Shown here is a 150-nucleotide sequence from Paenibacillus agri, a member of the family "FMN riboswitch aptamer (RFN element)". From the family's description: The RFN element is a highly conserved domain that is found frequently in the 5'-untranslated regions of prokaryotic mRNAs that encode for flavin mononucleotide (FMN) biosynthesis and transport proteins. This element is a metabolite-dependent riboswitch that directly binds FMN in the absence of proteins. It scores 109 bits against the family's covariance model.
RNA sequence: CAAGAUUCUCGGGGUAGGUGAAAUUCCUAACCGGCGGUAAUGUUCAGAGUGAACAAAGCCCGCGACUCGUCUCCACCUGUUAGCAGGAGAGGCGACUGAUCUGGUGCAAUUCCAGAGCCGACGGUAAAGUCCGGAUGGGAGAGGAUCAUA
Dot-bracket structure: ...(((((((.....(((.......))).[[((((((....................[[))))...((((((.................))))))....(((((.......)))))]])).(((....]]))).......)))))))...